[Rfam]
RNA sequence: UGCCUUUGUGUUGCCUGUUCAUUCCUGUCCAGAAUGAAUGUGUGGUGUCAAAAAAGGCAAACAGGAACUCUUGCUGAAACUGUUCAAGAAGCUGGUUAUUUACCCUUCUUCCUGUUUUUGCAAGGACAAAA
Numbered sequence: 001u002g003c004c005u006u007u008g009u010g011u012u013g014c015c016u017g018u019u020c021a022u023u024c025c026u027g028u029c030c031a032g033a034a035u036g037a038a039u040g041u042g043u044g045g046u047g048u049c050a051a052a053a054a055a056g057g058c059a060a061a062c063a064g065g066a067a068c069u070c071u072u073g074c075u076g077a078a079a080c081u082g083u084u085c086a087a088g089a090a091g092c093u094g095g096u097u098a099u100u101u102a103c104c105c106u107u108c109u110u111c112c113u114g115u116u117u118u119u120g121c122a123a124g125g126a127c128a129a130a131a
Stems, first nucleotide, its partner, number of pairs: 002058006009050002012047004016040008070124004075120005085114002088111004094104002
This 131-nucleotide sequence from Tyto alba belongs to the Rfam family "Small nucleolar RNA SNORA13". The source organism's lineage runs through Eukaryota, Deuterostomia, Vertebrata, Dinosauria and Tyto. About the family: ACA13 is a member of the H/ACA class of snoRNA that guide the sites of modification of uridines to pseudouridines. Pairs were carried over by alignment from the consensus structure, which was predicted with CMfinder. Rfam 15.1 lists 1,034 matches to the family in 605 species.